The family of this 97-nucleotide part of an RNA from Methanothrix thermoacetophila is "Archaeal large subunit ribosomal RNA".
RNA sequence: GUCACGGCAUGUGAGGACCUUCAGGCCGAAGGAGGUCGUCGCGAGGCGACAGUACGAGGCCUGAUGCCGGUGUCGUGACUUACGUUUUGAAGAACGG
Numbered sequence: 001g002u003c004a005c006g007g008c009a010u011g012u013g014a015g016g017a018c019c020u021u022c023a024g025g026c027c028g029a030a031g032g033a034g035g036u037c038g039u040c041g042c043g044a045g046g047c048g049a050c051a052g053u054a055c056g057a058g059g060c061c062u063g064a065u066g067c068c069g070g071u072g073u074c075g076u077g078a079c080u081u082a083c084g085u086u087u088u089g090a091a092g093a094a095c096g097g
Stems, first nucleotide, its partner, number of pairs: 001079010015068002021064007031055001036049005083096003